[Rfam]
RNA: Bacterial RNase P class A
RNA sequence: CGAGCCAGCCGGGUGAUCGCGGCAAACAAACCACCGCCUGACAUGGCGGCAGGUGAGCGCCGAGGAAAGUCCGGACUCCACAGAGCACGGUGGUUGCUAACGGCAACCCGGGGCAACCCGCGGGCACAGUGCAACAGAAAGUAAACCGCCACGCCAUGGUGCGGGGUAAGGGUGAAAGGGUGCGGUAAGAGCGCACCAGCGGAUCAGGUGACUGGCCCGGCUAGGUAAACCCCACUGGGAGCAAGGCAUCACGGCCUGGUGUUUCACCAGACCCGAUCGGAUGGUUGAGGGCUGCUCGCCCGAGUCCGAAGGUAGCUGCUUGAGGCGGCCAGCAAUGGUCGACCCAGAUGGAUGAUCACCGCCUUGAAUAAGGCACAGAAUCCGGCUUAUAGGCUGGCUCGCUCA
Numbered sequence: 001c002g003a004g005c006c007a008g009c010c011g012g013g014u015g016a017u018c019g020c021g022g023c024a025a026a027c028a029a030a031c032c033a034c035c036g037c038c039u040g041a042c043a044u045g046g047c048g049g050c051a052g053g054u055g056a057g058c059g060c061c062g063a064g065g066a067a068a069g070u071c072c073g074g075a076c077u078c079c080a081c082a083g084a085g086c087a088c089g090g091u092g093g094u095u096g097c098u099a100a101c102g103g104c105a106a107c108c109c110g111g112g113g114c115a116a117c118c119c120g121c122g123g124g125c126a127c128a129g130u131g132c133a134a135c136a137g138a139a140a141g142u143a144a145a146c147c148g149c150c151a152c153g154c155c156a157u158g159g160u161g162c163g164g165g166g167u168a169a170g171g172g173u174g175a176a177a178g179g180g181u182g183c184g185g186u187a188a189g190a191g192c193g194c195a196c197c198a199g200c201g202g203a204u205c206a207g208g209u210g211a212c213u214g215g216c217c218c219g220g221c222u223a224g225g226u227a228a229a230c231c232c233c234a235c236u237g238g239g240a241g242c243a244a245g246g247c248a249u250c251a252c253g254g255c256c257u258g259g260u261g262u263u264u265c266a267c268c269a270g271a272c273c274c275g276a277u278c279g280g281a282u283g284g285u286u287g288a289g290g291g292c293u294g295c296u297c298g299c300c301c302g303a304g305u306c307c308g309a310a311g312g313u314a315g316c317u318g319c320u321u322g323a324g325g326c327g328g329c330c331a332g333c334a335a336u337g338g339u340c341g342a343c344c345c346a347g348a349u350g351g352a353u354g355a356u357c358a359c360c361g362c363c364u365u366g367a368a369u370a371a372g373g374c375a376c377a378g379a380a381u382c383c384g385g386c387u388u389a390u391a392g393g394c395u396g397g398c399u400c401g402c403u404c405a
Base pairs, nucleotide, nucleotide: 001401002400003399004398005397006396007395008394009393010392011390012360013359014358015357016356017355018354020062021061022060023059027055028054067388068387069386071385072384073383074382075381076241077240078239079238083297084296085295086294088237089236090235091234092233093107094106095105096104097103108122109120110119111118112117123232124231129230130229131226132225146171147170148167149166150165152163153162154161179197180196181195182194183193184192199221200219201218202217204215205214206213207212245317246316247315277309278308279307280306281305282304289301290300291299292298324343326341327340328339329338330337331336